[Rfam]
RNA sequence: CGAGUGGGCCAAGCGAUCGCGCGCGAAAGCGUGAGGAAAGUCCGGGCUCCAAAGGGCAGGAUGCCAGCUAACGGCUGGGCGGGGCGACCCGACGGAAAGUGCCACAGAAAAGAAAACUCCCCUGUUAUCAGGAGAUAAGCUGAAACGGUGCGGUAAAAGCGCACCAGCACAACGGUAACGUUGUGGCUUGGUAAACCCCAUCCGGAGCAAGCGCUCAUAGGAACGCCAUACGGCUGCCCUUCCGUGCGUUCGGGUUGCGUGCUAGAGAUGUGUGGCGACAUGCAUUCGAGAUAAAUGAUCGCUCAACGACAGAACCCGGCUUAUAGACCCACUCGCCCA
Numbered sequence: 001c002g003a004g005u006g007g008g009c010c011a012a013g014c015g016a017u018c019g020c021g022c023g024c025g026a027a028a029g030c031g032u033g034a035g036g037a038a039a040g041u042c043c044g045g046g047c048u049c050c051a052a053a054g055g056g057c058a059g060g061a062u063g064c065c066a067g068c069u070a071a072c073g074g075c076u077g078g079g080c081g082g083g084g085c086g087a088c089c090c091g092a093c094g095g096a097a098a099g100u101g102c103c104a105c106a107g108a109a110a111a112g113a114a115a116a117c118u119c120c121c122c123u124g125u126u127a128u129c130a131g132g133a134g135a136u137a138a139g140c141u142g143a144a145a146c147g148g149u150g151c152g153g154u155a156a157a158a159g160c161g162c163a164c165c166a167g168c169a170c171a172a173c174g175g176u177a178a179c180g181u182u183g184u185g186g187c188u189u190g191g192u193a194a195a196c197c198c199c200a201u202c203c204g205g206a207g208c209a210a211g212c213g214c215u216c217a218u219a220g221g222a223a224c225g226c227c228a229u230a231c232g233g234c235u236g237c238c239c240u241u242c243c244g245u246g247c248g249u250u251c252g253g254g255u256u257g258c259g260u261g262c263u264a265g266a267g268a269u270g271u272g273u274g275g276c277g278a279c280a281u282g283c284a285u286u287c288g289a290g291a292u293a294a295a296u297g298a299u300c301g302c303u304c305a306a307c308g309a310c311a312g313a314a315c316c317c318g319g320c321u322u323a324u325a326g327a328c329c330c331a332c333u334c335g336c337c338c339a
Stems, first nucleotide, its partner, number of pairs: 001335008010326001011324001012303007020033005038322003042319005047207004054239004059203005064078005079093001080091004094198002099196002101192003117134001121132004147165006167187001168185007211260004221251006230245004267286008
Dot-bracket structure: ((((((((.(((((((((.(((((....)))))....[[[.[[[[[((((...[[[[.((((((((((.....)))))(((((....)))).)((...(((((.............(...((((....)))).)............((((((.......)))))).((((((((....))))))).)..)))..)))))))))))))...((((......((((((...((((..]]]]..)))))))))).....))))......((((((((....))))))))..........)))))))...........]]]]]]]].).).))))))))....
Shown here is a 339-nucleotide RNA from bacterium D16-34, a member of the family "Bacterial RNase P class A".
By type it is a ribozyme.
The family's consensus secondary structure is taken from published work.